Record summary
Rfam assigns this 84-nucleotide RNA to the family "Peptidase-S11 RNA". Rfam classes the family as a cis-regulatory element. The base pairs follow the family's consensus structure, which is taken from published work.

RNA sequence: GCUAUGAUGAGCCAUUCCGCUUCGUACCCCUUAGGUACGAGGCGGUUGUCUAUCAUAAUGUGCAUAAAUAACCGCCAGAAUACU
Numbered sequence: 001g002c003u004a005u006g007a008u009g010a011g012c013c014a015u016u017c018c019g020c021u022u023c024g025u026a027c028c029c030c031u032u033a034g035g036u037a038c039g040a041g042g043c044g045g046u047u048g049u050c051u052a053u054c055a056u057a058a059u060g061u062g063c064a065u066a067a068a069u070a071a072c073c074g075c076c077a078g079a080a081u082a083c084u
Base pairs, nucleotide, nucleotide: 017045018044019043020042021041022040023039024038025037026036048063049062051060052059053058